The family of this 80-nucleotide sequence from Crocodylus porosus is "Mammalian CPEB3 ribozyme". The family has 14 seed sequences and 5,706 matches in Rfam 15.1. NCBI's taxonomy places the organism under Eukaryota, Eumetazoa, Teleostomi, Sarcopterygii, Crocodylus. Its family is annotated with RNA nuclease activity in the Gene Ontology. A search with the family's covariance model found it, with a score of 37 bits.

RNA sequence: AGAGGUUACAAGUUUAAGGCUAAAGCAGAAGCACUAACAGCACGGCCCUGUCAAAUUCCAAUGAAUCUGCAAAUUCUACU
Numbered sequence: 001a002g003a004g005g006u007u008a009c010a011a012g013u014u015u016a017a018g019g020c021u022a023a024a025g026c027a028g029a030a031g032c033a034c035u036a037a038c039a040g041c042a043c044g045g046c047c048c049u050g051u052c053a054a055a056u057u058c059c060a061a062u063g064a065a066u067c068u069g070c071a072a073a074u075u076c077u078a079c080u
Base pairs, nucleotide, nucleotide: 018047019046020045021044024080025079027077028076029075030074031043052069053068055066056065057064058063